[Rfam]
RNA: Bacillaceae-1 RNA
Organism: Ureibacillus manganicus
RNA sequence: CAUGACCAACGGCAGUCAAAAGCGCAACGUCCUGUUGCAUUGACUGCAUGACCGACGUCGUGUCGG
Dot-bracket structure: ...........((((((......(((((.....)))))...))))))....(((((.....)))))